Shown here is a 256-nucleotide sequence from Pseudomonas panipatensis, a member of the family "Pseudomonas sRNA P24". A search with the family's covariance model found it, with a score of 200 bits.
RNA sequence: UUGCGCAAUCGAUGCUUCGCUGAGCAAUCUUCGCAAUCCGCUGCCGGGAACUCCCCCGUAUGAUCUCUCCCAGAUUCACGGCCCGGACACUCGCGUCCACGGCGAUCCGCCCAAUCAGGCGCAUCGCGGCCCGCCGACCCCACAGGGUCGCGCCGGCCCCCGGGCUACGCACCGCCCAGAAGGUGGAGCGAGGUGAGCCGGCGCUAACCGCGACGAGCCUGGACGAGUUUCCCGAGGGGAGGUCUCAGACCUCCCU
Number, nucleotide and partner (000 for none) at each position: 001u012002u011003g010004c000005g000006c000007a000008a000009u000010c003011g002012a001013u000014g000015c000016u000017u000018c000019g000020c000021u000022g000023a000024g000025c000026a000027a000028u000029c000030u000031u000032c000033g000034c000035a000036a000037u000038c000039c000040g000041c000042u000043g057044c000045c000046g054047g000048g000049a000050a000051c000052u000053c000054c046055c000056c000057c043058g000059u000060a000061u000062g000063a000064u000065c000066u000067c000068u000069c000070c000071c000072a000073g000074a000075u000076u196077c195078a194079c193080g000081g165082c164083c163084c162085g098086g097087a096088c095089a000090c000091u000092c000093g000094c000095g088096u087097c086098c085099a000100c000101g000102g127103c126104g125105a124106u123107c000108c000109g120110c119111c118112c000113a000114a000115u000116c000117a000118g111119g110120c109121g000122c000123a106124u105125c104126g103127c102128g158129g157130c156131c000132c155133g154134c000135c000136g149137a148138c147139c146140c145141c000142a000143c000144a000145g140146g139147g138148u137149c136150g000151c000152g000153c000154c133155g132156g130157c129158c128159c000160c000161c000162g084163g083164g082165c081166u000167a000168c190169g189170c188171a000172c186173c185174g184175c183176c182177c000178a000179g000180a000181a000182g176183g175184u174185g173186g172187a000188g170189c169190g168191a000192g000193g079194u078195g077196a076197g218198c217199c215200g214201g000202c212203g211204c210205u000206a000207a000208c000209c000210g204211c203212g202213a000214c200215g199216a000217g198218c197219c000220u000221g000222g000223a000224c000225g000226a000227g000228u000229u000230u000231c000232c000233c000234g000235a000236g256237g255238g254239g253240a000241g251242g250243u249244c248245u000246c000247a000248g244249a243250c242251c241252u000253c239254c238255c237256u236
Rfam classes the family as a non-coding RNA gene.